This 90-nucleotide RNA belongs to the Rfam family "skipping-rope RNA". It is one of the family's seed sequences. It is annotated as a small RNA.
RNA sequence: GAGGAUAGAGGUUGAGAAUCUGUCACCAACGCGCCACUUAGCUAGUGGGUCGAGAAAUGCGAGCGACAUCUGGCGGUCCCGCCUAUCCUU
Numbered sequence: 001g002a003g004g005a006u007a008g009a010g011g012u013u014g015a016g017a018a019u020c021u022g023u024c025a026c027c028a029a030c031g032c033g034c035c036a037c038u039u040a041g042c043u044a045g046u047g048g049g050u051c052g053a054g055a056a057a058u059g060c061g062a063g064c065g066a067c068a069u070c071u072g073g074c075g076g077u078c079c080c081g082c083c084u085a086u087c088c089u090u
Base pairs, nucleotide, nucleotide: 001090002089003088004087005086006085007084008083011030012029013028014027020076021075022074023073024072032054034048035047036046037045038044059082060081061080063078